[Rfam]
RNA sequence: AUAAAUCGAAGAGGUUGCAACUGCUAUCAGUCCGCUGAUCGAGUUUCUGUGAAAACAACGACAUUGGCCAAAAGGCGCAGUUGCCGAAGCGGCAUCGCUCACAGGCGAUGCUUAGCUGGGACGUGAUUCAAUAAAUCACGGACUGUCGCAGGUACCAUACUUGCGGGGCGCUAUCGAAAAU
Numbered sequence: 001a002u003a004a005a006u007c008g009a010a011g012a013g014g015u016u017g018c019a020a021c022u023g024c025u026a027u028c029a030g031u032c033c034g035c036u037g038a039u040c041g042a043g044u045u046u047c048u049g050u051g052a053a054a055a056c057a058a059c060g061a062c063a064u065u066g067g068c069c070a071a072a073a074g075g076c077g078c079a080g081u082u083g084c085c086g087a088a089g090c091g092g093c094a095u096c097g098c099u100c101a102c103a104g105g106c107g108a109u110g111c112u113u114a115g116c117u118g119g120g121a122c123g124u125g126a127u128u129c130a131a132u133a134a135a136u137c138a139c140g141g142a143c144u145g146u147c148g149c150a151g152g153u154a155c156c157a158u159a160c161u162u163g164c165g166g167g168g169c170g171c172u173a174u175c176g177a178a179a180a181u
Stems, first nucleotide, its partner, number of pairs: 006176001008174001010172002017084008034068006088117003091112007118144002122140007146166007

The family of this 181-nucleotide sequence from Loigolactobacillus bifermentans is "Lysine riboswitch aptamer". Pairs were carried over by alignment from the consensus structure, which is taken from published work. Taxonomically the source falls in Loigolactobacillus bifermentans (Bacteria, Bacillati, Bacillota, Bacilli).